[Rfam]
RNA sequence: AUGCCAACCAAUUGAUCUGCUUAUCUGAAUGUUUCUGCAGAAAUUUAGAGAAAACUGACAACACUGAUGCCAUUUUUUGAGCCUGGGGUCAUUUGAGCUGGGGUCAUUGGGGUCCCUAAAAAUGGCUCCAAUA
Numbered sequence: 001a002u003g004c005c006a007a008c009c010a011a012u013u014g015a016u017c018u019g020c021u022u023a024u025c026u027g028a029a030u031g032u033u034u035c036u037g038c039a040g041a042a043a044u045u046u047a048g049a050g051a052a053a054a055c056u057g058a059c060a061a062c063a064c065u066g067a068u069g070c071c072a073u074u075u076u077u078u079g080a081g082c083c084u085g086g087g088g089u090c091a092u093u094u095g096a097g098c099u100g101g102g103g104u105c106a107u108u109g110g111g112g113u114c115c116c117u118a119a120a121a122a123u124g125g126c127u128c129c130a131a132u133a
Base pairs, nucleotide, nucleotide: 003059005057006056016041017040018039019038020037069126070125071124072123081113082112083111084109085108086107088105090103
RNA: Small nucleolar RNA SNORA33
Organism: Jaculus jaculus